[Rfam]
RNA: raiA RNA
RNA sequence: UCCACCCAGGUCUGUGGUUGCGGGCGCAUGCGUGCGCCCUAGUUCAUGGCAGACGAGGCCAAAAGGAUCCACGUAAGUCGUGGGGUGCGCCCUGCGGCGAGCACGGCUCGUCCUAGAGGUAAGUCGCACCGCCCGUUAGACAAGAGGCAUACGGCCUCGCGGGCGAGAGGGCUGCGAGUGAGGGGCCGUGUAGCCCCAAAGCGGAGGCCCCAGUGCGCGAGUGUGGGGUCGAAUACCAGGUCAGCUGGGUGGA
Numbered sequence: 001u002c003c004a005c006c007c008a009g010g011u012c013u014g015u016g017g018u019u020g021c022g023g024g025c026g027c028a029u030g031c032g033u034g035c036g037c038c039c040u041a042g043u044u045c046a047u048g049g050c051a052g053a054c055g056a057g058g059c060c061a062a063a064a065g066g067a068u069c070c071a072c073g074u075a076a077g078u079c080g081u082g083g084g085g086u087g088c089g090c091c092c093u094g095c096g097g098c099g100a101g102c103a104c105g106g107c108u109c110g111u112c113c114u115a116g117a118g119g120u121a122a123g124u125c126g127c128a129c130c131g132c133c134c135g136u137u138a139g140a141c142a143a144g145a146g147g148c149a150u151a152c153g154g155c156c157u158c159g160c161g162g163g164c165g166a167g168a169g170g171g172c173u174g175c176g177a178g179u180g181a182g183g184g185g186c187c188g189u190g191u192a193g194c195c196c197c198a199a200a201g202c203g204g205a206g207g208c209c210c211c212a213g214u215g216c217g218c219g220a221g222u223g224u225g226g227g228g229u230c231g232a233a234u235a236c237c238a239g240g241u242c243a244g245c246u247g248g249g250u251g252g253a
Stems, first nucleotide, its partner, number of pairs: 001253009012244003015238004046224003049059001052112006068106002078096001082092003104231001125217005130165007169210004178202002184195003